RNA sequence: GAAAGGCUGCGUAAAAUCUAUAAUUAUUUGCGGCUGGAUGUAUAGAACCCCGUCAGUUUUAUAUAUCUCAAUUAGG
Numbered sequence: 001g002a003a004a005g006g007c008u009g010c011g012u013a014a015a016a017u018c019u020a021u022a023a024u025u026a027u028u029u030g031c032g033g034c035u036g037g038a039u040g041u042a043u044a045g046a047a048c049c050c051c052g053u054c055a056g057u058u059u060u061a062u063a064u065a066u067c068u069c070a071a072u073u074a075g076g
Stems, first nucleotide, its partner, number of pairs: 005035007036068013

Record summary: A member of the RNA family "S4-Clostridia ribosomal protein leader", 76 nucleotides long. By type it is a cis-regulatory leader.